[Rfam]
mir-132 microRNA precursor family: an 83-nucleotide RNA from Eptatretus burgeri.
For this family Rfam cites "The developmental miRNA profiles of zebrafish as determined by small RNA cloning" (Chen et al., Genes Dev, 2005).
The match comes from Rfam's covariance-model search (55 bits).
Its family is annotated with miRNA-mediated post-transcriptional gene silencing and RISC complex in the Gene Ontology.

RNA sequence: UGCCAUAGCAACCAUGGCUGUAGACUGUUACCUGACAACUAUAUAGUGCAGUAACAGUCUAUAGCCACGGGUACCAUGACCCC
Dot-bracket structure: ...........((.((((....(((((((((...................)))))))))....)))).)).............